A member of the RNA family "Glutamine-II riboswitch aptamer", 52 nucleotides long. The sequence is in the family's curated seed alignment. The family's consensus secondary structure is taken from published work.

RNA sequence: GUCCGUUCAUCCUUCGGGACGCAUGAGAUCCAAGCAUGGAACGGGGCUUGGG
Numbered sequence: 001g002u003c004c005g006u007u008c009a010u011c012c013u014u015c016g017g018g019a020c021g022c023a024u025g026a027g028a029u030c031c032a033a034g035c036a037u038g039g040a041a042c043g044g045g046g047c048u049u050g051g052g
Base pairs, nucleotide, nucleotide: 004043005042006041007040008039010019011018012017029052030051031050032049033048034047035046